[Rfam]
RNA sequence: CGAGUCAGCCGCUAUCCCUGUCCUCCAGGAGCUCACGUGUCUGGCUGUGAGCUCCCCGAGGGCAGAGCCCGCGUCUGUCUCCAUGCAGCG
Numbered sequence: 001c002g003a004g005u006c007a008g009c010c011g012c013u014a015u016c017c018c019u020g021u022c023c024u025c026c027a028g029g030a031g032c033u034c035a036c037g038u039g040u041c042u043g044g045c046u047g048u049g050a051g052c053u054c055c056c057c058g059a060g061g062g063c064a065g066a067g068c069c070c071g072c073g074u075c076u077g078u079c080u081c082c083a084u085g086c087a088g089c090g
Stems, first nucleotide, its partner, number of pairs: 006077003010073003016067001018065003022061001024059002028055002031052006038043001
RNA: mir-339 microRNA precursor family